[Rfam]
RNA sequence: UUGGGUCAAAUACAGUAGCUCGCAUGAGAGUGAACCACGACCUUUACGAAAGGAGAAAUGUUUCCCGUGACUACGUCCGAAACUGCCCUUUGAUGCUUCUGCACGAACGCCGCCGGUAAACCGAGCGUGCAUGGCGAGGGAUAUGUCUCAACUCGUUUCAUGUGUAUCCAGCAAAGCAGAUUAGACGACAUCCAACAAGACAUCUGUACGGAGGGCGAAAAAUUAUUUUUUAUGAG
Numbered sequence: 001u002u003g004g005g006u007c008a009a010a011u012a013c014a015g016u017a018g019c020u021c022g023c024a025u026g027a028g029a030g031u032g033a034a035c036c037a038c039g040a041c042c043u044u045u046a047c048g049a050a051a052g053g054a055g056a057a058a059u060g061u062u063u064c065c066c067g068u069g070a071c072u073a074c075g076u077c078c079g080a081a082a083c084u085g086c087c088c089u090u091u092g093a094u095g096c097u098u099c100u101g102c103a104c105g106a107a108c109g110c111c112g113c114c115g116g117u118a119a120a121c122c123g124a125g126c127g128u129g130c131a132u133g134g135c136g137a138g139g140g141a142u143a144u145g146u147c148u149c150a151a152c153u154c155g156u157u158u159c160a161u162g163u164g165u166a167u168c169c170a171g172c173a174a175a176g177c178a179g180a181u182u183a184g185a186c187g188a189c190a191u192c193c194a195a196c197a198a199g200a201c202a203u204c205u206g207u208a209c210g211g212a213g214g215g216c217g218a219a220a221a222a223u224u225a226u227u228u229u230u231u232a233u234g235a236g
Base pairs, nucleotide, nucleotide: 004042005041006040007039019030020029066075067074068073085216086215087214088213089212090211091210092209094208095172096171097170100166101165102164103163104162109130110129133157134156135155136154137153138152176207177206178205179204180203182202184193